[Rfam]
RNA sequence: GUCCGAAAGGGCAGACUGUCGGCGACGGCAGGACGCGAAGCCUCCGGGCUCGCAAGAGCUAGCGGGGCCGCCAGGA
Numbered sequence: 001g002u003c004c005g006a007a008a009g010g011g012c013a014g015a016c017u018g019u020c021g022g023c024g025a026c027g028g029c030a031g032g033a034c035g036c037g038a039a040g041c042c043u044c045c046g047g048g049c050u051c052g053c054a055a056g057a058g059c060u061a062g063c064g065g066g067g068c069c070g071c072c073a074g075g076a
Stems, first nucleotide, its partner, number of pairs: 011036002016031006034062001040068003044065003047060003

Overview: A member of the RNA family "c-di-GMP-I-GGC riboswitch aptamer", 76 nucleotides long. Rfam 15.1 lists 1,298 matches to the family in 717 species. The sequence is in the family's curated seed alignment. The base pairs follow the family's consensus structure, which is taken from published work.